[Rfam]
RNA sequence: GGGAGGAAGCCACAGUGGCGGGGGCAGCUCUGCAGCCCUGGAAUCAGCCCCCGCAGUAGCUCCGGAGCUCUCCGUCUGCAGGGCCUGGAGACUCCCAGGCGGG
Numbered sequence: 001g002g003g004a005g006g007a008a009g010c011c012a013c014a015g016u017g018g019c020g021g022g023g024g025c026a027g028c029u030c031u032g033c034a035g036c037c038c039u040g041g042a043a044u045c046a047g048c049c050c051c052c053g054c055a056g057u058a059g060c061u062c063c064g065g066a067g068c069u070c071u072c073c074g075u076c077u078g079c080a081g082g083g084c085c086u087g088g089a090g091a092c093u094c095c096c097a098g099g100c101g102g103g
Stems, first nucleotide, its partner, number of pairs: 001094003008086002010083002017076007026069007034061001038056003
Dot-bracket structure: (((....((((.....(((((((..(((((((.(...(((.............)))....).)))))))))))))).....)).)).....))).........

This 103-nucleotide sequence from Vulpes vulpes belongs to the Rfam family "mir-8834 microRNA precursor family". The match comes from Rfam's covariance-model search (65 bits). Rfam links the family to the GO terms miRNA-mediated post-transcriptional gene silencing and RISC complex. NCBI's taxonomy places the organism under Eukaryota, Metazoa, Craniata, Gnathostomata, Vulpes.